A member of the RNA family "Small nucleolar RNA SNORA22" from Dipodomys ordii, 134 nucleotides long.
Rfam classes the family as an H/ACA-box small nucleolar RNA.
RNA sequence: UUGCACAGUGAACACCCAAGGGUGCUUUGUAGUUUCCUUGGCUUUGACUCUGUGCUAGAGUAAUAUCUGUUCUUUUCCUCUGCAUUCAAAUGGGUAUUUCACCUUUGAAAUGUAUUCAGAAAGUCAGCACAUUU
Numbered sequence: 001u002u003g004c005a006c007a008g009u010g011a012a013c014a015c016c017c018a019a020g021g022g023u024g025c026u027u028u029g030u031a032g033u034u035u036c037c038u039u040g041g042c043u044u045u046g047a048c049u050c051u052g053u054g055c056u057a058g059a060g061u062a063a064u065a066u067c068u069g070u071u072c073u074u075u076u077c078c079u080c081u082g083c084a085u086u087c088a089a090a091u092g093g094g095u096a097u098u099u100c101a102c103c104u105u106u107g108a109a110a111u112g113u114a115u116u117c118a119g120a121a122a123g124u125c126a127g128c129a130c131a132u133u134u
Stems, first nucleotide, its partner, number of pairs: 003055006010049001013046002016041005022035001024033003057073006079120004083112004087107004092102001
Dot-bracket structure: ..((((((.(..((.(((((.(.(((....))).).)))))...))..))))))).((((((.....)))))).....((((((((((((.(.........).)))).))))....))))..............
It scores 146 bits against the family's covariance model. ACA22 is a member of the H/ACA class of snoRNA that guide the sites of modification of uridines to pseudouridines.